[Rfam]
RNA sequence: AUAUUUUUUCAUGGUAUUAAAUUUAAGGUUAAUAGAAGAUUGGUUGUCGGGAUGACAACCAUUUUUUUAUC
Numbered sequence: 001a002u003a004u005u006u007u008u009u010c011a012u013g014g015u016a017u018u019a020a021a022u023u024u025a026a027g028g029u030u031a032a033u034a035g036a037a038g039a040u041u042g043g044u045u046g047u048c049g050g051g052a053u054g055a056c057a058a059c060c061a062u063u064u065u066u067u068u069a070u071c
Stems, first nucleotide, its partner, number of pairs: 042060007
Dot-bracket structure: .........................................(((((((.....)))))))...........

This 71-nucleotide sequence from Coprobacter fastidiosus belongs to the Rfam family "Bacteroidetes FopS (family of paralogous sRNAs)". It is annotated as a small RNA. Lineage of the source: Bacteria > Pseudomonadati > Bacteroidia > Barnesiellaceae > Coprobacter fastidiosus. For this family Rfam cites "The global RNA-binding protein RbpB is a regulator of polysaccharide utilization in Bacteroides thetaiotaomicron" (Ruttiger et al., Nat Commun, 2025). The base pairs follow the family's consensus structure, which is taken from published work. Rfam describes the family as follows. The RNA-binding protein RbpB and BTncRNA_FopS sRNA are involved in the post-transcription regulation of polysaccharide utilisation loci (PUL). FopS sRNAs function as post-transcriptional repressors by binding to the vicinity of the start codon of the first mRNA of target PUL polycistrons, typically corresponding to the cognate SusC homolog, impeding translation of the respective glycan transporter. Gene Ontology term of the family: sRNA-mediated gene silencing.